[Rfam]
RNA sequence: GGCGGUCCGGCUCCUCCCCCCCGGAGCCAGGCCCGCUCGACGGCCCCGGUCAUCCCCCCGACCGGGGCCGUCGCCU
Numbered sequence: 001g002g003c004g005g006u007c008c009g010g011c012u013c014c015u016c017c018c019c020c021c022c023g024g025a026g027c028c029a030g031g032c033c034c035g036c037u038c039g040a041c042g043g044c045c046c047c048g049g050u051c052a053u054c055c056c057c058c059c060g061a062c063c064g065g066g067g068c069c070g071u072c073g074c075c076u
Stems, first nucleotide, its partner, number of pairs: 002036002004033004009028005039072013
RNA: 6C RNA
Organism: Knoellia aerolata